[Rfam]
This 94-nucleotide RNA from Arabidopsis thaliana belongs to the Rfam family "Small nucleolar RNA snoR26".
Gene Ontology terms of the family: nucleolus and RNA processing.
A reference for the family is Brown et al. (2001), "Multiple snoRNA gene clusters from Arabidopsis", RNA.
The family's consensus secondary structure was predicted with WAR.
It is one of the family's seed sequences.
RNA sequence: AGAGCAUCGGUGAUGAAUCCAUGAAAAAAUUGUUAUCCUUGCACUUUGAUUGCUAGUGAAGAAACAAAUGGGGUUUUCGAUGUCUGAGAUGCUC
Numbered sequence: 001a002g003a004g005c006a007u008c009g010g011u012g013a014u015g016a017a018u019c020c021a022u023g024a025a026a027a028a029a030u031u032g033u034u035a036u037c038c039u040u041g042c043a044c045u046u047u048g049a050u051u052g053c054u055a056g057u058g059a060a061g062a063a064a065c066a067a068a069u070g071g072g073g074u075u076u077u078c079g080a081u082g083u084c085u086g087a088g089a090u091g092c093u094c
Stems, first nucleotide, its partner, number of pairs: 002094007